[Rfam]
RNA sequence: AGGGAUUAUCAAGUGUAACAGCAACUCCAUGUGGACUGUGUACAAUUUCCAGUGGAGAUGCUGUUAUUUUUGAUGAUUGC
Numbered sequence: 001a002g003g004g005a006u007u008a009u010c011a012a013g014u015g016u017a018a019c020a021g022c023a024a025c026u027c028c029a030u031g032u033g034g035a036c037u038g039u040g041u042a043c044a045a046u047u048u049c050c051a052g053u054g055g056a057g058a059u060g061c062u063g064u065u066a067u068u069u070u071u072g073a074u075g076a077u078u079g080c
Base pairs, nucleotide, nucleotide: 009073010072011071015067016066017065018064019063020062021061022060025057026056027055028054029053030052032051033050034049